[Rfam]
Nucleotides: 150
Stems, first nucleotide, its partner, number of pairs: 003057006014045008023036002077143001079141004089131002094126001096124001098123001102120004107115001
Number, partner (000 for none) and nucleotide at each position: 001000a002000u003057u004056g005055c006054c007053u008052c009000a010000g011000a012000a013000u014045a015044a016043c017042c018041g019040a020039a021038u022000g023036g024035u025000g026000g027000u028000c029000u030000a031000u032000a033000a034000a035024g036023c037000u038021a039020u040019u041018u042017g043016g044015u045014u046000c047000a048000g049000a050000c051000a052008g053007a054006g055005g056004c057003a058000u059000a060000g061000a062000c063000u064000a065000a066000a067000g068000g069000g070000a071000a072000u073000g074000c075000u076000c077143c078000c079141a080140a081139a082138c083000c084000g085000a086000u087000a088000u089131g090130g091000u092000u093000u094126g095000a096124g097000g098123g099000u100000a101000a102120g103119g104118g105117a106000u107115g108000c109000u110000u111000u112000c113000u114000a115107c116000u117105u118104c119103u120102u121000c122000a123098u124096c125000c126094c127000u128000u129000u130090c131089c132000u133000a134000g135000u136000u137000a138082g139081u140080u141079u142000c143077g144000g145000a146000u147000a148000u149000u150000u